The family of this 50-nucleotide RNA sequence is "Glutamine riboswitch aptamer (glnA leader)". For this family Rfam cites "Structural and Dynamic Basis for Low-Affinity, High-Selectivity Binding of L-Glutamine by the Glutamine Riboswitch" (Ren et al., Cell Rep, 2015). Pairs were carried over by alignment from the consensus structure, which is taken from published work.
RNA sequence: GACGUUCAUCACAAAUGUGACGGAAGUACCAAUGAGGGAAGGAACGCACC
Numbered sequence: 001g002a003c004g005u006u007c008a009u010c011a012c013a014a015a016u017g018u019g020a021c022g023g024a025a026g027u028a029c030c031a032a033u034g035a036g037g038g039a040a041g042g043a044a045c046g047c048a049c050c
Base pairs, nucleotide, nucleotide: 003046004045005044006043007042009020010019011018012017023047029037030036